[Rfam]
RNA sequence: CACUUAUAUAAUUUUGAUUGUUGCUCAGAAAGCCCUCAUUGUUUACCAGUUGGCUUUCGAGCAAUAAUUGAAACCAGAUAAGUG
Numbered sequence: 001c002a003c004u005u006a007u008a009u010a011a012u013u014u015u016g017a018u019u020g021u022u023g024c025u026c027a028g029a030a031a032g033c034c035c036u037c038a039u040u041g042u043u044u045a046c047c048a049g050u051u052g053g054c055u056u057u058c059g060a061g062c063a064a065u066a067a068u069u070g071a072a073a074c075c076a077g078a079u080a081a082g083u084g
Stems, first nucleotide, its partner, number of pairs: 001084007012073007020065007028058007
RNA: mir-315 microRNA precursor family